[Rfam]
RNA sequence: GCUGGUGAGAAGAAUGCUUAAGGAGCAACUCACGGAUGCCUGGUCAUUCAACUCGGCUCCUGGGAAGGUCUGAGACAAGGUCCAACGCCGAGGGGUGGCGUUUAUCUCCUAGCAGGAGAGGCUGUGCAAUACAUGCCGGGGCCGUACGAGAAAAUGGCCGGUGGUUGUGUGCGUGACGCAAGAUGGGUAACUAACUAUACCCGGACGUUUGGUGCACACAAUCGCCGUUCGGAGACGGUGUCGGUGCCUGCUGCGCUGAGUGCGAUAGCUUGUGAUCAAACUCAAUUCAGACUACUCUCUCGCCAGU
Numbered sequence: 001g002c003u004g005g006u007g008a009g010a011a012g013a014a015u016g017c018u019u020a021a022g023g024a025g026c027a028a029c030u031c032a033c034g035g036a037u038g039c040c041u042g043g044u045c046a047u048u049c050a051a052c053u054c055g056g057c058u059c060c061u062g063g064g065a066a067g068g069u070c071u072g073a074g075a076c077a078a079g080g081u082c083c084a085a086c087g088c089c090g091a092g093g094g095g096u097g098g099c100g101u102u103u104a105u106c107u108c109c110u111a112g113c114a115g116g117a118g119a120g121g122c123u124g125u126g127c128a129a130u131a132c133a134u135g136c137c138g139g140g141g142c143c144g145u146a147c148g149a150g151a152a153a154a155u156g157g158c159c160g161g162u163g164g165u166u167g168u169g170u171g172c173g174u175g176a177c178g179c180a181a182g183a184u185g186g187g188u189a190a191c192u193a194a195c196u197a198u199a200c201c202c203g204g205a206c207g208u209u210u211g212g213u214g215c216a217c218a219c220a221a222u223c224g225c226c227g228u229u230c231g232g233a234g235a236c237g238g239u240g241u242c243g244g245u246g247c248c249u250g251c252u253g254c255g256c257u258g259a260g261u262g263c264g265a266u267a268g269c270u271u272g273u274g275a276u277c278a279a280a281c282u283c284a285a286u287u288c289a290g291a292c293u294a295c296u297c298u299c300u301c302g303c304c305a306g307u
Base pairs, nucleotide, nucleotide: 001307002306003305004304008300009299010298014273015272016271018268019267021061022060023059024058025057034049035048036047037046038045039043070290071289072288073287074286080248082246105119106118107117108116109115120137121136122135123133124132125131138242139241141239142238143237144236159227160226161225
The record is a 307-nucleotide sequence from Parascaris univalens, which matches "Nuclear RNase P" in Rfam. Rfam classes the family as a ribozyme. The match comes from Rfam's covariance-model search (92 bits). The organism belongs to Parascaris, within Eukaryota. Ribonuclease P (RNase P) is a ubiquitous endoribonuclease, found in archaea, bacteria and eukarya as well as chloroplasts and mitochondria. The base pairs follow the family's consensus structure, which is taken from published work.